[Rfam]
RNA sequence: GCGUGGGUAGCCAAGCACGGAAACGGCGUAGCGCUUAGGACGCUAUCCCGUAGGGGUCCGCCGGUUCAAAUCCGGUCCCACGCA
Numbered sequence: 001g002c003g004u005g006g007g008u009a010g011c012c013a014a015g016c017a018c019g020g021a022a023a024c025g026g027c028g029u030a031g032c033g034c035u036u037a038g039g040a041c042g043c044u045a046u047c048c049c050g051u052a053g054g055g056g057u058c059c060g061c062c063g064g065u066u067c068a069a070a071u072c073c074g075g076u077c078c079c080a081c082g083c084a
Base pairs, nucleotide, nucleotide: 001083002082003081004080005079006078007077010027011026012025029045030044031043032042033041060076061075062074063073064072